[Rfam]
The family of this 45-nucleotide RNA sequence from Equus caballus is "Histone 3' UTR stem-loop". The match comes from Rfam's covariance-model search (38 bits). NCBI's taxonomy places the organism under Eukaryota, Chordata, Boreoeutheria, Equidae, Equus. The family's RNA type in Rfam is cis-regulatory element.
RNA sequence: CCAAAGGCUCUUUUCAGAGCCACCCACACGAUCGAGAAAGGGGUU
Numbered sequence: 001c002c003a004a005a006g007g008c009u010c011u012u013u014u015c016a017g018a019g020c021c022a023c024c025c026a027c028a029c030g031a032u033c034g035a036g037a038a039a040g041g042g043g044u045u
Stems, first nucleotide, its partner, number of pairs: 006021006